Notes:
Shown here is a 626-nucleotide RNA from Myotis myotis, a member of the family "c-sis internal ribosome entry site (IRES)".
Nucleotides: 626
Base pairs, nucleotide, nucleotide: 002268003267005262006261007260008259009258011256012255014253015252016251018249020248021247028232029231030230031229033166034165035164036163037162039160041159042157043156044155045154046153048098049092053090055088057087059085060084061083062082063081067075068074104147107144109142110141111140112139113138114137115136116135117134118127119126120125169226170225172223173222174221175220176219179216180215183210184209270283271282272281273280274279290601291600292599293598294597295596297593298592299591302588303587309540310539311538312537317535318534319532320531321530322529323527328525329524330523336522337521338520341517358367359366372409375406376405379403380402382400384390416515418513421510423509424508425507426506427505428504429503430501431500432499433498434492436489437488438487439486442483443465444464445463447460448459449458450457451456466476467475468474542583543582544581545580548577549576550575552574553573554572555571559570560569561568562567606625607624608623609622612619
Number, partner (000 for none) and nucleotide at each position: 001000c002268g003267g004000a005262g006261c007260a008259g009258c010000c011256g012255c013000a014253g015252c016251u017000u018249g019000c020248a021247g022000c023000c024000c025000g026000u027000u028232g029231a030230g031229g032000a033166c034165g035164c036163c037162c038000a039160g040000a041159g042157u043156g044155g045154c046153g047000a048098g049092c050000a051000g052000a053090c054000u055088g056000a057087c058000c059085g060084a061083c062082a063081g064000a065000c066000u067075c068074g069000c070000c071000c072000c073000a074068c075067g076000u077000c078000c079000a080000c081063c082062u083061g084060u085059c086000u087057g088055c089000u090053g091000c092049g093000g094000c095000c096000g097000g098048c099000c100000c101000a102000g103000a104147g105000c106000u107144c108000a109142g110141c111140g112139g113138g114137c115136a116135c117134g118127c119126c120125g121000c122000g123000c124000g125120c126119g127118g128000g129000g130000c131000a132000g133000c134117c135116g136115u137114g138113c139112c140111c141110g142109c143000c144107g145000c146000c147104c148000c149000g150000g151000g152000c153046c154045g155044c156043c157042a158000g159041c160039c161000a162037g163036g164035g165034c166033g167000c168000a169226c170225a171000c172223g173222c174221u175220c176219c177000g178000g179216c180215c181000c182000c183210c184209c185000c186000g187000c188000c189000c190000c191000c192000a193000c194000c195000c196000c197000c198000a199000c200000c201000c202000c203000c204000c205000a206000g207000g208000c209184g210183g211000c212000c213000c214000a215180g216179g217000a218000g219176g220175g221174a222173g223172u224000u225170u226169g227000c228000a229031c230030c231029u232028c233000u234000c235000g236000c237000u238000g239000c240000c241000u242000g243000g244000g245000u246000a247021c248020u249018c250000u251016g252015g253014u254000c255012g256011c257000c258009g259008c260007u261006g262005c263000a264000a265000a266000g267003c268002c269000a270283a271282c272281u273280u274279u275000g276000g277000a278000a279274a280273a281272a282271g283270u284000u285000u286000u287000c288000a289000g290601g291600g292599g293598g294597a295596g296000a297593c298592u299591u300000c301000a302588g303587c304000u305000u306000u307000g308000a309540g310539g311538u312537g313000c314000c315000c316000a317535g318534c319532u320531c321530u322529a323527g324000c325000u326000u327000u328525c329524c330523g331000a332000c333000u334000u335000c336522g337521g338520g339000a340000c341517c342000c343000u344000u345000c346000c347000c348000g349000g350000a351000a352000a353000a354000u355000g356000u357000u358367g359366c360000a361000a362000a363000a364000a365000a366359g367358c368000u369000a370000a371000g372409c373000c374000a375406g376405c377000g378000g379403g380402c381000a382400g383000a384390g385000g386000a387000a388000g389000a390384c391000g392000c393000c394000g395000u396000u397000a398000a399000c400382c401000c402380g403379c404000a405376g406375c407000g408000a409372g410000a411000g412000a413000a414000g415000a416515g417000a418513g419000a420000a421510g422000a423509c424508g425507a426506g427505c428504c429503a430501u431500c432499g433498a434492c435000c436489g437488c438487c439486g440000c441000c442483u443465u444464c445463u446000u447460u448459u449458u450457c451456c452000u453000c454000u455000u456451g457450g458449a459448g460447g461000u462000u463445g464444g465443a466476g467475u468474c469000c470000c471000c472000u473000a474468g475467g476466c477000g478000c479000c480000c481000c482000c483442a484000c485000a486439c487438g488437g489436c490000u491000a492434g493000a494000c495000a496000c497000c498433u499432c500431g501430g502000c503429u504428g505427g506426u507425u508424c509423g510421c511000a512000a513418c514000g515416c516000a517341g518000c519000c520338c521337c522336c523330c524329g525328g526000c527323c528000g529322u530321g531320g532319a533000u534318g535317c536000u537312c538311g539310c540309u541000c542583g543582g544581g545580c546000u547000c548577g549576g550575g551000a552574u553573c554572c555571g556000c557000c558000c559570a560569g561568g562567u563000a564000g565000u566000g567562g568561c569560c570559u571555c572554g573553g574552a575550c576549c577548c578000u579000g580545g581544u582543c583542u584000c585000g586000c587303g588302c589000c590000c591299a592298g593297g594000c595000c596295c597294u598293c599292c600291c601290c602000a603000g604000u605000c606625c607624c608623c609622c610000a611000a612619c613000a614000a615000c616000g617000g618000a619612g620000c621000c622609g623608g624607g625606g626000c

The family's consensus secondary structure was predicted with ILM. It scores 406 bits against the family's covariance model. The family has 10 seed sequences and 123 matches in Rfam 15.1. About the family: This family represents the c-sis 5'-UTR which contains three modules that can individually mediate internal ribosome entry. However, the full length sequence is required for maximal IRES activity. It is thought that the three IRES elements are somehow responsive to cellular changes and act to regulate the level of translation. Its family is annotated with ribosome binding in the Gene Ontology.